Source information: Shown here is a 215-nucleotide RNA sequence from Cryptosporangium arvum, a member of the family "Actinobacteria sRNA Ms_IGR-5". Rfam classes the family as a small RNA. The match comes from Rfam's covariance-model search (76 bits).
[Rfam]
RNA sequence: ACACGAGAGGGGAGGUGGUCCAAAGUUGAAUACUUAUCGGACUCGUGAGGUGGCUACUUCCUAGCCGCCCGUUGGACUACGGUCCGAACCGCUGCCUUUGUGCACGUAGACGGCGGUGAGGCAAACCAAGGUAACCACCGACCCCUCAGGCUGCCGGACUCGUCCGACCGGCUCCGCGAUACGAAUCGCGGAACAAAGCCUGAGGGGCUUUUUAA
Numbered sequence: 001a002c003a004c005g006a007g008a009g010g011g012g013a014g015g016u017g018g019u020c021c022a023a024a025g026u027u028g029a030a031u032a033c034u035u036a037u038c039g040g041a042c043u044c045g046u047g048a049g050g051u052g053g054c055u056a057c058u059u060c061c062u063a064g065c066c067g068c069c070c071g072u073u074g075g076a077c078u079a080c081g082g083u084c085c086g087a088a089c090c091g092c093u094g095c096c097u098u099u100g101u102g103c104a105c106g107u108a109g110a111c112g113g114c115g116g117u118g119a120g121g122c123a124a125a126c127c128a129a130g131g132u133a134a135c136c137a138c139c140g141a142c143c144c145c146u147c148a149g150g151c152u153g154c155c156g157g158a159c160u161c162g163u164c165c166g167a168c169c170g171g172c173u174c175c176g177c178g179a180u181a182c183g184a185a186u187c188g189c190g191g192a193a194c195a196a197a198g199c200c201u202g203a204g205g206g207g208c209u210u211u212u213u214a215a
Stems, first nucleotide, its partner, number of pairs: 014058006060121003064117002067114003072109003140209001142207011154171004159166001